Small nucleolar RNA SNORD79: a 78-nucleotide sequence from Leucopsar rothschildi.
RNA sequence: UACUGUUCGUGAUGAAUUCUAAACAAUGGGAAUCUCUCUGAAAGAGGCUGAGGAGAGCUCUCUUUCGCUGAAACAGUA
Numbered sequence: 001u002a003c004u005g006u007u008c009g010u011g012a013u014g015a016a017u018u019c020u021a022a023a024c025a026a027u028g029g030g031a032a033u034c035u036c037u038c039u040g041a042a043a044g045a046g047g048c049u050g051a052g053g054a055g056a057g058c059u060c061u062c063u064u065u066c067g068c069u070g071a072a073a074c075a076g077u078a
Stems, first nucleotide, its partner, number of pairs: 001078007

snoRNA U79 or Z22 is found in intron 7 of the gas5 gene in humans and is also present in mice. Rfam links the family to the GO terms nucleolus and RNA processing. It is annotated as a C/D-box small nucleolar RNA. For this family Rfam cites "Purified box C/D snoRNPs are able to reproduce site-specific 2'-O-methylation of target RNA in vitro" (Galardi et al., Mol Cell Biol, 2002). Lineage of the source: Eukaryota > Euteleostomi > Coelurosauria > Neoaves > Leucopsar.